[Rfam]
RNA sequence: UUUAAUAAUAAGCUCCGAGCAAAAGCAUCUAAGGAGAAUUCUAGGAUGCUUCGCCAAAGCAAUGGAUUUGCUUUUGGGUUGAAGUGGAAACGCCUCAGCCUUCCGUGUUUGAAAAGGAGUAUUUAGAUAGAGGCU
Numbered sequence: 001u002u003u004a005a006u007a008a009u010a011a012g013c014u015c016c017g018a019g020c021a022a023a024a025g026c027a028u029c030u031a032a033g034g035a036g037a038a039u040u041c042u043a044g045g046a047u048g049c050u051u052c053g054c055c056a057a058a059g060c061a062a063u064g065g066a067u068u069u070g071c072u073u074u075u076g077g078g079u080u081g082a083a084g085u086g087g088a089a090a091c092g093c094c095u096c097a098g099c100c101u102u103c104c105g106u107g108u109u110u111g112a113a114a115a116g117g118a119g120u121a122u123u124u125a126g127a128u129a130g131a132g133g134c135u
Stems, first nucleotide, its partner, number of pairs: 003129002006126001012120005019054002023051007033042003058072005076101007084093003102112002
Annotation: Molybdenum/Tungsten riboswitch aptamer (Moco RNA motif): a 135-nucleotide RNA sequence from Anaerocolumna aminovalerica. Rfam links the family to the GO terms regulation of gene expression, molybdenum ion binding and tungstate binding. NCBI's taxonomy places the organism under Bacteria, Bacillota, Clostridia, Lachnospiraceae, Anaerocolumna.